[Rfam]
RNA sequence: GACCGACACUCUGGAAAGCGUCCGGGCCGAAAACGGCCGGACCACCGAAGGGGUAAGCGAUGCCGGCCAUCGGUCGGCACGUGAAAGCUCUCAGGUUCCGUGACAGAGGGGGCGAC
Number, nucleotide and partner (000 for none) at each position: 001g000002a000003c000004c000005g000006a000007c110008a000009c108010u107011c106012u105013g104014g000015a000016a000017a000018g000019c000020g042021u041022c040023c039024g038025g037026g000027c000028c000029g000030a000031a000032a000033a000034c000035g000036g000037c025038c024039g023040g022041a021042c020043c000044a096045c095046c094047g092048a091049a000050g000051g090052g089053g088054u000055a000056a000057g082058c081059g000060a000061u000062g000063c000064c000065g000066g000067c000068c000069a000070u000071c000072g000073g000074u000075c000076g000077g000078c000079a000080c000081g058082u057083g000084a000085a000086a000087g000088c053089u052090c051091u048092c047093a000094g046095g045096u044097u000098c000099c000100g000101u000102g000103a000104c013105a012106g011107a010108g009109g000110g007111g000112g000113c000114g000115a000116c000
This 116-nucleotide sequence from Sphingomonas sp. CFBP 13720 belongs to the Rfam family "Glycine riboswitch aptamer". Taxonomically the source falls in Sphingomonas (Bacteria, Pseudomonadota, Alphaproteobacteria, Sphingomonadaceae). From the family's description: This family represents the bacterial glycine riboswitch.